Rfam assigns this 58-nucleotide RNA from Gossypium schwendimanii to the family "Plastid-psbA-3 3UTR RNA". NCBI's taxonomy places the organism under Eukaryota, Streptophytina, Tracheophyta, Malvaceae, Gossypium. Rfam classes the family as a cis-regulatory element. The literature on the family includes a 2023 paper in Plant Commun by Richter et al., "Retrograde signaling in plants: A critical review focusing on the GUN pathway and beyond". Rfam describes the family as follows. Plastid psbA-3 is a non-coding RNA (ncRNA) present in plastids. It was identified in inverted repeat sequences in the 3 prime untranslate region (3UTR) of photosystem II quinone-binding protein (psbA). The family is grouped with related families in Rfam's "Plastid-psbA 3UTR RNA clan".
RNA sequence: AAAAGAGCAAUAACCACUUUUUUGUUCUAGCAAGAGUAUUGGUAUUGCUCAUUUAUUU
Numbered sequence: 001a002a003a004a005g006a007g008c009a010a011u012a013a014c015c016a017c018u019u020u021u022u023u024g025u026u027c028u029a030g031c032a033a034g035a036g037u038a039u040u041g042g043u044a045u046u047g048c049u050c051a052u053u054u055a056u057u058u
Base pairs, nucleotide, nucleotide: 001054002053003052005050006049007048008047009046010045011044012043014041019036020035021034022033023032024031